A member of the RNA family "L4-Archaeoglobi ribosomal protein leades", 97 nucleotides long. For this family Rfam cites "Discovery of 20 novel ribosomal leader candidates in bacteria and archaea" (Eckert and Weinberg, BMC Microbiol, 2020).
[Rfam]
RNA sequence: CUGACAAAAAUGCAUGGGUCGAUAUCGGAAUCGAUAGCCCGGUCCGCCUCGAAGCACCUUCAAGAAAAGUGCGAACUGGCGAGCGCGUUAAUGUCAG
Number, nucleotide and partner (000 for none) at each position: 001c097002u096003g095004a094005c093006a000007a000008a000009a089010a088011u087012g086013c085014a000015u041016g040017g039018g038019u000020c000021g000022a000023u036024a035025u034026c033027g032028g000029a000030a000031u000032c027033g026034a025035u024036a023037g000038c018039c017040c016041g015042g000043u000044c000045c081046g080047c079048c078049u000050c000051g000052a000053a000054g072055c071056a070057c069058c000059u067060u000061c000062a000063a000064g000065a000066a000067a059068a000069g057070u056071g055072c054073g000074a000075a000076c000077u000078g048079g047080c046081g045082a000083g000084c000085g013086c012087g011088u010089u009090a000091a000092u000093g005094u004095c003096a002097g001